RNA sequence: GUGAAGUUGAUCACCAACAAACAUAUACCCCUUUGUUUGACCGUGAAAAAUUUCUCCCAUCCCCUUUGUUCGUAUUAAUAGAAAAUACCUUGCAGACAAUUUACUGCAAGGUAUUU
Numbered sequence: 001g002u003g004a005a006g007u008u009g010a011u012c013a014c015c016a017a018c019a020a021a022c023a024u025a026u027a028c029c030c031c032u033u034u035g036u037u038u039g040a041c042c043g044u045g046a047a048a049a050a051u052u053u054c055u056c057c058c059a060u061c062c063c064c065u066u067u068g069u070u071c072g073u074a075u076u077a078a079u080a081g082a083a084a085a086u087a088c089c090u091u092g093c094a095g096a097c098a099a100u101u102u103a104c105u106g107c108a109a110g111g112u113a114u115u116u
Stems, first nucleotide, its partner, number of pairs: 003054006011046004018039006070082001086113010
RNA: RNA Staph. aureus E (RoxS)
Organism: Neobacillus mesonae